[Rfam]
Rfam assigns this 406-nucleotide part of an RNA from Aurelia sp. Incheon-2006 to the family "Eukaryotic large subunit ribosomal RNA". NCBI's taxonomy places the organism under Eukaryota, Opisthokonta, Cnidaria, Scyphozoa, Aurelia. Clan: LSU clan.
RNA sequence: CGGAUGCAGUUAGCAAUGCUUUUGCGAGAUUCAGGCGGUCGCUCGGCCAGACGUGCAGUUGAUGGAUCCGAAUGGACUGUCGCUGUACGGCCGGGUCUUGUGCCCGUCGCACUUCUCGCUGGAGCGCGUCAACAGCUGCUGGGCCUGGUCGACACGGUCAAGUGGAAGGUAAGCAUCCAGCUUGCUGGCUGUUGUUAUAUCCACUCGUACCUAGAUCGGGCUUGGCAGAGGCGAGCGGUGCAUGCUCUCUCUCGAGAGGGCUGGCGUCCUGUUCCGUUCACGUAGCCGGCUUGGAUGCACUGCGUGCAGUACGUUCUUGCCGGUGAAACGGCGUGCAGUCAACGCACUCGAUGCACCAUGGUUGUUGGCGGCCAUAUGGCUUUAUCCGACCCGUCUUGAAACACGG
Numbered sequence: 001c002g003g004a005u006g007c008a009g010u011u012a013g014c015a016a017u018g019c020u021u022u023u024g025c026g027a028g029a030u031u032c033a034g035g036c037g038g039u040c041g042c043u044c045g046g047c048c049a050g051a052c053g054u055g056c057a058g059u060u061g062a063u064g065g066a067u068c069c070g071a072a073u074g075g076a077c078u079g080u081c082g083c084u085g086u087a088c089g090g091c092c093g094g095g096u097c098u099u100g101u102g103c104c105c106g107u108c109g110c111a112c113u114u115c116u117c118g119c120u121g122g123a124g125c126g127c128g129u130c131a132a133c134a135g136c137u138g139c140u141g142g143g144c145c146u147g148g149u150c151g152a153c154a155c156g157g158u159c160a161a162g163u164g165g166a167a168g169g170u171a172a173g174c175a176u177c178c179a180g181c182u183u184g185c186u187g188g189c190u191g192u193u194g195u196u197a198u199a200u201c202c203a204c205u206c207g208u209a210c211c212u213a214g215a216u217c218g219g220g221c222u223u224g225g226c227a228g229a230g231g232c233g234a235g236c237g238g239u240g241c242a243u244g245c246u247c248u249c250u251c252u253c254g255a256g257a258g259g260g261c262u263g264g265c266g267u268c269c270u271g272u273u274c275c276g277u278u279c280a281c282g283u284a285g286c287c288g289g290c291u292u293g294g295a296u297g298c299a300c301u302g303c304g305u306g307c308a309g310u311a312c313g314u315u316c317u318u319g320c321c322g323g324u325g326a327a328a329c330g331g332c333g334u335g336c337a338g339u340c341a342a343c344g345c346a347c348u349c350g351a352u353g354c355a356c357c358a359u360g361g362u363u364g365u366u367g368g369c370g371g372c373c374a375u376a377u378g379g380c381u382u383u384a385u386c387c388g389a390c391c392c393g394u395c396u397u398g399a400a401a402c403a404c405g406g
Base pairs, nucleotide, nucleotide: 001388002387003386004385005384006383008381009380010379011378012377017124020123021122022121024119025118026117027116028115029114127370128369129368130367131366132365133364134363135362136361137360138359391406392405393404394403
Dot-bracket structure: ((((((.(((((....(..(((.((((((....................................................................................)))))).))))..((((((((((((............................................................................................................................................................................................................................))))))))))))......))))).))))))..((((........))))